The record is an 84-nucleotide RNA sequence, which matches "L31-Actinobacteria ribosomal protein leader" in Rfam.
RNA sequence: CCGGUUCCGGUUCACGCCUGAGCCCGUCCGCCGUACGCCCUGCGGGGCGGCGGUGGGGACGAGCCGGAUGGCGACCCGGCGACC
Numbered sequence: 001c002c003g004g005u006u007c008c009g010g011u012u013c014a015c016g017c018c019u020g021a022g023c024c025c026g027u028c029c030g031c032c033g034u035a036c037g038c039c040c041u042g043c044g045g046g047g048c049g050g051c052g053g054u055g056g057g058g059a060c061g062a063g064c065c066g067g068a069u070g071g072c073g074a075c076c077c078g079g080c081g082a083c084c
Stems, first nucleotide, its partner, number of pairs: 003084003007079004015073004019066002

The literature on the family includes a 2020 paper in BMC Microbiol by Eckert and Weinberg, "Discovery of 20 novel ribosomal leader candidates in bacteria and archaea". By type it is a cis-regulatory leader. The family's consensus secondary structure is taken from published work. Clan: Ribosomal Protein L31 Leader clan.